Archaeal large subunit ribosomal RNA: a 399-nucleotide part of an RNA from Acidianus brierleyi. The organism belongs to Acidianus, within Archaea.
[Rfam]
Nucleotides: 399
Stems, first nucleotide, its partner, number of pairs: 016034006035396004043375004049355002054078006063071002085351003089123002094117006100110003127144005147347008180326003186314009197302005203220005225273004234264005244254003285290001361370002377391004
Number, partner (000 for none) and nucleotide at each position: 001000g002000g003000c004000a005000g006000u007000a008000a009000u010000a011000g012000c013000g014000a015000a016034a017033g018032g019031g020030a021029g022000u023000g024000a025000g026000a027000a028000u029021c030020u031019c032018c033017c034016u035396c036395g037394c038393c039000g040000a041000a042000a043375g044374g045373g046372c047000a048000a049355g050354g051000g052000u053000u054078u055077c056076c057075c058074g059073g060000c061000a062000a063071u064070g065000g066000u067000c068000g069000u070064c071063a072000g073059c074058c075057g076056g077055g078054a079000g080000u081000g082000a083000g084000c085351c086350g087349g088000u089123c090122c091000u092000a093000a094117g095116g096115u097114g098113a099112g100110g101109c102108c103000u104000a105000a106000c107000u108102g109101g110100u111000a112099c113098u114097c115096a116095c117094c118000g119000a120000a121000a122090g123089g124000g125000a126000a127144a128143g129142g130141a131140g132000u133000u134000a135000a136000u137000a138000u139000u140131c141130u142129c143128c144127u145000g146000c147347c148346u149345c150344g151343g152342a153341g154340g155000u156000a157000g158000g159000u160000g161000c162000g163000g164000u165000a166000a167000c168000g169000c170000a171000u172000g173000c174000u175000a176000g177000a178000c179000u180326c181325c182324u183000g184000a185000c186314g187313g188312a189311u190310c191309g192308a193307g194306g195000u196000a197302g198301g199300g200299a201298g202000a203220a204219u205218g206217a207216g208000g209000c210000c211000a212000c213000c214000g215000c216207c217206u218205c219204a220203u221000c222000c223000a224000a225273g226272u227271a228270c229000u230000u231000a232000a233000g234264u235263c236262c237261c238260u239000g240000g241000a242000g243000a244254g245253c246252c247000g248000u249000a250000a251000u252246g253245g254244u255000g256000a257000g258000a259000a260238g261237g262236g263235g264234a265000c266000g267000a268000a269000g270228g271227u272226g273225c274000g275000a276000u277000g278000g279000g280000c281000u282000u283000u284000c285290c286000g287000u288000a289000u290285g291000g292000a293000g294000a295000g296000u297000u298201c299200u300199c301198c302197u303000g304000a305000u306194c307193c308192u309191u310190g311189g312188u313187u314186c315000c316000c317000a318000u319000g320000a321000a322000a323000a324182g325181g326180g327000a328000g329000u330000c331000u332000a333000g334000a335000a336000c337000g338000a339000u340154c341153c342152u343151c344150c345149g346148a347147g348000u349087c350086c351085g352000u353000a354050c355049c356000c357000a358000g359000a360000a361370c362369c363000g364000a365000c366000a367000c368000a369362g370361g371000u372046g373045c374044c375043c376000c377391u378390a379389g380388g381000u382000g383000a384000g385000a386000a387000g388380c389379c390378u391377a392000a393038g394037g395036c396035g397000u398000c399000u